A member of the RNA family "mir-34 microRNA precursor family" from Sitta europaea, 71 nucleotides long. About the family: Human mir-34a was discovered computationally and later experimentally verified. The organism belongs to Sitta, within Eukaryota. The literature on the family includes a 2003 paper in RNA by Dostie et al., "Numerous microRNPs in neuronal cells containing novel microRNAs".

[Rfam]
RNA sequence: GGUUUGCAGGCAGUGUAGUUAGCUGAUUGUAUCCUCGACUGCACAAUCACUAACUUCACUGCCAUCAAAAC
Numbered sequence: 001g002g003u004u005u006g007c008a009g010g011c012a013g014u015g016u017a018g019u020u021a022g023c024u025g026a027u028u029g030u031a032u033c034c035u036c037g038a039c040u041g042c043a044c045a046a047u048c049a050c051u052a053a054c055u056u057c058a059c060u061g062c063c064a065u066c067a068a069a070a071c
Base pairs, nucleotide, nucleotide: 003069004068005067006066009063010062012060013059014058015057017055018054019053020052021051022050024049025048026047027046028045029044030043